[Rfam]
RNA sequence: CGUAGUAAGAUUUGUAAGUCGCUCUGGAUAAGAGCGUCUGCUAAAUGACUUAAA
Numbered sequence: 001c002g003u004a005g006u007a008a009g010a011u012u013u014g015u016a017a018g019u020c021g022c023u024c025u026g027g028a029u030a031a032g033a034g035c036g037u038c039u040g041c042u043a044a045a046u047g048a049c050u051u052a053a054a
Base pairs, nucleotide, nucleotide: 013043014041015040016039020036021035022034023033024032025031
Dot-bracket structure: ............((((...((((((.....))))))..))).)...........